[Rfam]
RNA sequence: UUUCGGCUUAGUUAGGGGGCGUAAACUAAUUCGGACCUCAGAGUACUUCUGGGGUCUCCUACCGAGGCCUUUUUGAGGGGACUCUUUGUUCUUACUCUCAAUGGUCCUCCAAGCAGCUUUGGACAUUU
Numbered sequence: 001u002u003u004c005g006g007c008u009u010a011g012u013u014a015g016g017g018g019g020c021g022u023a024a025a026c027u028a029a030u031u032c033g034g035a036c037c038u039c040a041g042a043g044u045a046c047u048u049c050u051g052g053g054g055u056c057u058c059c060u061a062c063c064g065a066g067g068c069c070u071u072u073u074u075g076a077g078g079g080g081a082c083u084c085u086u087u088g089u090u091c092u093u094a095c096u097c098u099c100a101a102u103g104g105u106c107c108u109c110c111a112a113g114c115a116g117c118u119u120u121g122g123a124c125a126u127u128u
Stems, first nucleotide, its partner, number of pairs: 004021002007018003034056005041049003062122007072113004077109007085101001
The record is a 128-nucleotide RNA sequence from Actinidia chinensis, which matches "Small nucleolar RNA U19" in Rfam. Gene Ontology terms of the family: nucleolus and RNA processing. Taxonomically the source falls in Actinidia chinensis (Eukaryota, Streptophyta, Magnoliopsida, Actinidia). By type it is an H/ACA-box small nucleolar RNA. The match comes from Rfam's covariance-model search (82 bits).